[Rfam]
A member of the RNA family "tRNA" from Saccharomyces cerevisiae, 82 nucleotides long. The organism belongs to Saccharomyces, within Eukaryota. Rfam's curators write: Transfer RNA (tRNA) molecules are approximately 80 nucleotides in length. Its family is annotated with triplet codon-amino acid adaptor activity in the Gene Ontology. The family's RNA type in Rfam is transfer RNA.
RNA sequence: GGUUGUUUGGCCGAGCGGUCUAAGGCGCCUGAUUCAAGCUCAGGUAUCGUAAGAUGCAAGAGUUCGAAUCUCUUAGCAACCA
Numbered sequence: 001g002g003u004u005g006u007u008u009g010g011c012c013g014a015g016c017g018g019u020c021u022a023a024g025g026c027g028c029c030u031g032a033u034u035c036a037a038g039c040u041c042a043g044g045u046a047u048c049g050u051a052a053g054a055u056g057c058a059a060g061a062g063u064u065c066g067a068a069u070c071u072c073u074u075a076g077c078a079a080c081c082a
Stems, first nucleotide, its partner, number of pairs: 001081007010026003028044005058074005